Background: TPP riboswitch aptamer (THI element): a 103-nucleotide RNA from Aliidongia dinghuensis.

[Rfam]
RNA sequence: UAACGUGUCAUGGGGUGCCGUCUGGAUCUGCCGGCGGCUGAGAUCAUACCCACAACACCUGAUCUGGGUCAUGCCAGCGAAGGGAUGCACGAGAUGCAGAACG
Numbered sequence: 001u002a003a004c005g006u007g008u009c010a011u012g013g014g015g016u017g018c019c020g021u022c023u024g025g026a027u028c029u030g031c032c033g034g035c036g037g038c039u040g041a042g043a044u045c046a047u048a049c050c051c052a053c054a055a056c057a058c059c060u061g062a063u064c065u066g067g068g069u070c071a072u073g074c075c076a077g078c079g080a081a082g083g084g085a086u087g088c089a090c091g092a093g094a095u096g097c098a099g100a101a102c103g
Stems, first nucleotide, its partner, number of pairs: 006091003009087002011052004016046001017038005058083003064077004
The source organism's lineage runs through Bacteria, Pseudomonadati, Pseudomonadota, Dongiaceae and Aliidongia.
The family's consensus secondary structure is taken from published work.